[Rfam]
Nucleotides: 088
Base pairs, nucleotide, nucleotide: 001019002018003017004016005015028087029086031082032081033080034079035078036077037076038075040073041072042071043070044069045068046067
Number, partner (000 for none) and nucleotide at each position: 001019a002018u003017a004016g005015a006000g007000c008000a009000a010000c011000a012000g013000c014000u015005u016004c017003u018002a019001u020000g021000c022000a023000g024000a025000u026000u027000c028087a029086g030000u031082g032081a033080g034079c035078c036077c037076c038075g039000u040073u041072a042071g043070u044069c045068u046067u047000u048000c049000c050000u051000c052000g053000u054000c055000g056000c057000c058000a059000a060000a061000c062000u063000c064000u065000g066000g067046a068045a069044g070043a071042u072041u073040a074000u075038c076037g077036g078035g079034g080033u081032u082031u083000u084000c085000u086029u087028u088000u
The record is an 88-nucleotide sequence from Paramixta manurensis, which matches "CopA-like RNA" in Rfam. Its family is annotated with mRNA binding in the Gene Ontology. About the family: In several groups of bacterial plasmids, antisense RNAs regulate copy number through inhibition of replication initiator protein synthesis. These RNAs are characterised by a long hairpin structure interrupted by several unpaired residues or bulged loops. In plasmid R1, the inhibitory complex between the antisense RNA (CopA) and its target mRNA (CopT) is characterised by a four-way junction structure and a side-by-side helical alignment. By type it is an antisense RNA. The base pairs follow the family's consensus structure, which was predicted with PFOLD. It scores 66 bits against the family's covariance model. On this family, see Gerhart et al., Nucleic Acids Res 1986: "Structural analysis of an RNA molecule involved in replication control of plasmid R1".